[Rfam]
Shown here is a 42-nucleotide RNA sequence from Pontibacillus litoralis, a member of the family "Ribosomal protein L19 leader".
RNA sequence: ACAAUGUUCCGCUGCUAAUAAAAUAUUAGGUAUGAGCAUUAG
Dot-bracket structure: ..(((((((...((((((.......)))).)).)))))))..
Numbered sequence: 001a002c003a004a005u006g007u008u009c010c011g012c013u014g015c016u017a018a019u020a021a022a023a024u025a026u027u028a029g030g031u032a033u034g035a036g037c038a039u040u041a042g
Stems, first nucleotide, its partner, number of pairs: 003040007013032002015029004
Source information: A search with the family's covariance model found it, with a score of 45 bits. Rfam links the family to the GO term regulation of gene expression. Taxonomically the source falls in Pontibacillus litoralis (Bacteria, Bacillota, Caryophanales, Pontibacillus). It is annotated as a cis-regulatory leader.